RNA sequence: ACCAUUGAGGGGCGCUGCGACGGUACGCAAUGGGCGUGCCUGCCAGGCUCGAUGGGGCGGCUCCCAACCCCGUACAACGGCGCCCGUUCAAC
Numbered sequence: 001a002c003c004a005u006u007g008a009g010g011g012g013c014g015c016u017g018c019g020a021c022g023g024u025a026c027g028c029a030a031u032g033g034g035c036g037u038g039c040c041u042g043c044c045a046g047g048c049u050c051g052a053u054g055g056g057g058c059g060g061c062u063c064c065c066a067a068c069c070c071c072g073u074a075c076a077a078c079g080g081c082g083c084c085c086g087u088u089c090a091a092c
Stems, first nucleotide, its partner, number of pairs: 002055007021042003024038005
RNA: SAH (S-adenosyl-L-homocysteine) riboswitch aptamer